[Rfam]
RNA sequence: UAAUCACAUAGUGACUGACGACAAACGUGGAGACCACCACAAGGGAGCUAUGUGUGAGAAUUGCCGGUCGUCUGGGCGAGGGGA
Numbered sequence: 001u002a003a004u005c006a007c008a009u010a011g012u013g014a015c016u017g018a019c020g021a022c023a024a025a026c027g028u029g030g031a032g033a034c035c036a037c038c039a040c041a042a043g044g045g046a047g048c049u050a051u052g053u054g055u056g057a058g059a060a061u062u063g064c065c066g067g068u069c070g071u072c073u074g075g076g077c078g079a080g081g082g083g084a
Stems, first nucleotide, its partner, number of pairs: 005054008015044002017072005027040004061079005
Rfam assigns this 84-nucleotide RNA sequence from Halalkalibacillus sediminis to the family "ZMP/ZTP riboswitch aptamer (pfl RNA motif)". Taxonomically the source falls in Halalkalibacillus (Bacteria, Bacillota, Bacilli, Caryophanales).